[Rfam]
RNA sequence: ACGUCUUUAACGCUUAAUUCCGGUCCUGGACCGGAAGCGGGGGAACCAACAGCAGCAUGCUUAUUGAUGAGCAUGGCGCCGGGGUGAAUCCUUCUGUCCUGCAAAGGGACAAUGGAGGGAUGGGCGACUCUCACGCCCUAAUCCGUCAGCUAACCUCGUAAGCGUAUAGGGAGAGGCAGC
Numbered sequence: 001a002c003g004u005c006u007u008u009a010a011c012g013c014u015u016a017a018u019u020c021c022g023g024u025c026c027u028g029g030a031c032c033g034g035a036a037g038c039g040g041g042g043g044a045a046c047c048a049a050c051a052g053c054a055g056c057a058u059g060c061u062u063a064u065u066g067a068u069g070a071g072c073a074u075g076g077c078g079c080c081g082g083g084g085u086g087a088a089u090c091c092u093u094c095u096g097u098c099c100u101g102c103a104a105a106g107g108g109a110c111a112a113u114g115g116a117g118g119g120a121u122g123g124g125c126g127a128c129u130c131u132c133a134c135g136c137c138c139u140a141a142u143c144c145g146u147c148a149g150c151u152a153a154c155c156u157c158g159u160a161a162g163c164g165u166a167u168a169g170g171g172a173g174a175g176g177c178a179g180c
Stems, first nucleotide, its partner, number of pairs: 011164004018036008037159006047081001082144003090119008122138004
RNA: c-di-AMP riboswitch aptamer (ydaO/yuaA leader)